[Rfam]
RNA sequence: AUGAAGGAUGCGAGAGAGAUCCCGCCGUGGCGGGACGCCGAAGGGGCAACGCGCCCACGUGACGCUGAAACUCUCAGGCAAAGAGAAUCGCAUCCGGACG
Numbered sequence: 001a002u003g004a005a006g007g008a009u010g011c012g013a014g015a016g017a018g019a020u021c022c023c024g025c026c027g028u029g030g031c032g033g034g035a036c037g038c039c040g041a042a043g044g045g046g047c048a049a050c051g052c053g054c055c056c057a058c059g060u061g062a063c064g065c066u067g068a069a070a071c072u073c074u075c076a077g078g079c080a081a082a083g084a085g086a087a088u089c090g091c092a093u094c095c096g097g098a099c100g
Base pairs, nucleotide, nucleotide: 006095007094008093009092010091011090012089013088020035021034022033023032037079038078039077040075041074044073045072046071051065052064053063
Shown here is a 100-nucleotide RNA from Fretibacterium fastidiosum, a member of the family "Glycine riboswitch aptamer".